[Rfam]
RNA sequence: UGGGGCCCACACGACUGGCGCAGGUGGGUGACCACCAGGGAGUGACGUCGGGAGCAUCGACCGCCUGGGUGCUCCUC
Numbered sequence: 001u002g003g004g005g006c007c008c009a010c011a012c013g014a015c016u017g018g019c020g021c022a023g024g025u026g027g028g029u030g031a032c033c034a035c036c037a038g039g040g041a042g043u044g045a046c047g048u049c050g051g052g053a054g055c056a057u058c059g060a061c062c063g064c065c066u067g068g069g070u071g072c073u074c075c076u077c
Stems, first nucleotide, its partner, number of pairs: 003049002007047001010044003015039002017065004024035004054072005
ZMP/ZTP riboswitch aptamer (pfl RNA motif): a 77-nucleotide RNA from Nocardioides marmotae. The source organism's lineage runs through Bacteria, Bacillati, Propionibacteriales, Nocardioidaceae and Nocardioides. Its family is annotated with regulation of purine nucleotide biosynthetic process and one-carbon metabolic process in the Gene Ontology. The family has 185 seed sequences and 3,295 matches in Rfam 15.1.